[Rfam]
RNA sequence: UCGACUGUACUUACAGGAUUUCUGUCUAGUACAUCUCCAGUCUUUGUUUCCCAACAUAGACACACAGUUUACCCUCGACGAUGAGUUGAAGUGCGCUGCCCGUAAAGGGAAGCGAAGCUGUAGCUAAUUCUCCUCUUGGAGAAUGGUUGCUUGCUUAUUGAUGAUCUUGUCUAGUCUGCCCUUCAAGGCGGCUAUGAUGAGGGCGGUCGCACAUUCUGAGCGGU
Numbered sequence: 001u002c003g004a005c006u007g008u009a010c011u012u013a014c015a016g017g018a019u020u021u022c023u024g025u026c027u028a029g030u031a032c033a034u035c036u037c038c039a040g041u042c043u044u045u046g047u048u049u050c051c052c053a054a055c056a057u058a059g060a061c062a063c064a065c066a067g068u069u070u071a072c073c074c075u076c077g078a079c080g081a082u083g084a085g086u087u088g089a090a091g092u093g094c095g096c097u098g099c100c101c102g103u104a105a106a107g108g109g110a111a112g113c114g115a116a117g118c119u120g121u122a123g124c125u126a127a128u129u130c131u132c133c134u135c136u137u138g139g140a141g142a143a144u145g146g147u148u149g150c151u152u153g154c155u156u157a158u159u160g161a162u163g164a165u166c167u168u169g170u171c172u173a174g175u176c177u178g179c180c181c182u183u184c185a186a187g188g189c190g191g192c193u194a195u196g197a198u199g200a201g202g203g204c205g206g207u208c209g210c211a212c213a214u215u216c217u218g219a220g221c222g223g224u
Stems, first nucleotide, its partner, number of pairs: 001039001003037002006033006014024004045062003050059001073223002076220001091212005096206006105168003115156004123148001128143005170197002175190001178189003
RNA: Small nucleolar RNA U3
Organism: Mortierella sp. 14UC